[Rfam]
This 101-nucleotide RNA sequence from Pseudomonas panipatensis belongs to the Rfam family "traJ-II RNA". Pairs were carried over by alignment from the consensus structure, which is taken from published work. The family has 47 seed sequences and 174 matches in Rfam 15.1.
RNA sequence: GGGCAAGACAGGUGAAGUAGGCCCACCCGCUAGCGGGCGAACCUACUUCACUGGCCCUUAUUUGCACUACGCGCUCAACGGGAGUCUUGCCCCUGAGGGCA
Number, nucleotide and partner (000 for none) at each position: 001g092002g091003g090004c089005a088006a087007g086008a085009c084010a000011g000012g051013u050014g049015a048016a047017g046018u000019a044020g043021g042022c000023c000024c039025a000026c037027c036028c035029g034030c000031u000032a000033g000034c029035g028036g027037g026038c000039g024040a000041a000042c021043c020044u019045a000046c017047u016048u015049c014050a013051c012052u000053g000054g000055c082056c081057c080058u000059u000060a000061u000062u000063u000064g074065c073066a000067c071068u000069a000070c000071g067072c000073g065074c064075u000076c000077a000078a000079c000080g057081g056082g055083a000084g009085u008086c007087u006088u005089g004090c003091c002092c001093c000094u000095g000096a000097g000098g000099g000100c000101a000